About this RNA: The family of this 97-nucleotide RNA from Actinomadura kijaniata is "Glycine riboswitch aptamer".

Nucleotides: 097
Base pairs, nucleotide, nucleotide: 006092007091008090009089010088011087012086013085021039022038023037024036025035042077043076044075045073046072049071050070051069056064
Number, partner (000 for none) and nucleotide at each position: 001000u002000g003000a004000u005000c006092c007091c008090g009089u010088g011087c012086g013085g014000g015000a016000g017000a018000g019000u020000g021039c022038c023037c024036u025035g026000g027000u028000c029000g030000c031000c032000a033000g034000u035025c036024a037023g038022g039021g040000a041000c042077g043076c044075c045073g046072a047000a048000g049071g050070a051069g052000c053000a054000a055000a056064u057000c058000c059000u060000c061000c062000c063000c064056g065000g066000a067000a068000c069051c070050u071049c072046u073045c074000a075044g076043g077042c078000c079000c080000a081000c082000g083000g084000a085013c086012c087011g088010c089009g090008c091007g092006g093000a094000c095000c096000a097000g

Rfam describes the family as follows. This family represents the bacterial glycine riboswitch. The match comes from Rfam's covariance-model search (62 bits). The organism belongs to Actinomadura, within Bacteria.